[Rfam]
RNA: COG3860 RNA
Organism: Jannaschia seohaensis
RNA sequence: CGGUCCGCAGUUCACCGAGGCGCCGCCGUCCCUGUCGGGACAUGCUGAACCUGCCA
Numbered sequence: 001c002g003g004u005c006c007g008c009a010g011u012u013c014a015c016c017g018a019g020g021c022g023c024c025g026c027c028g029u030c031c032c033u034g035u036c037g038g039g040a041c042a043u044g045c046u047g048a049a050c051c052u053g054c055c056a
Stems, first nucleotide, its partner, number of pairs: 001017004029040004